Nucleotides: 102
Base pairs, nucleotide, nucleotide: 020088021087022086023085024084025083026082027081028080029079030075031074032073033072034071035070036069037068038067041065042064043063044062045061
Number, partner (000 for none) and nucleotide at each position: 001000c002000u003000g004000a005000u006000u007000g008000a009000u010000c011000c012000u013000a014000a015000u016000u017000c018000c019000u020088g021087g022086g023085a024084c025083c026082c027081u028080a029079u030075c031074a032073g033072u034071a035070u036069u037068g038067u039000c040000u041065c042064u043063g044062c045061u046000g047000u048000c049000c050000a051000c052000u053000u054000u055000g056000u057000u058000c059000a060000g061045a062044g063043u064042a065041g066000u067038g068037c069036a070035a071034u072033a073032u074031u075030g076000c077000u078000u079029a080028u081027a082026g083025g084024g085023u086022u087021u088020c089000a090000g091000g092000c093000u094000u095000u096000a097000g098000g099000u100000a101000a102000u
Annotation:
Rfam assigns this 102-nucleotide RNA from Chanos chanos to the family "mir-454 microRNA precursor family". The base pairs follow the family's consensus structure, which was predicted with RNAalifold.